Shown here is a 37-nucleotide sequence from Pedobacter sp. HMWF019, a member of the family "DUF805b RNA". The match comes from Rfam's covariance-model search (44 bits).

RNA sequence: ACGGGGGUAACCGAAAACCCGAUGAAUAGAGUAGGUA
Numbered sequence: 001a002c003g004g005g006g007g008u009a010a011c012c013g014a015a016a017a018c019c020c021g022a023u024g025a026a027u028a029g030a031g032u033a034g035g036u037a
Base pairs, nucleotide, nucleotide: 002021003020004019005018010036011035012034
Rfam classes the family as a cis-regulatory element.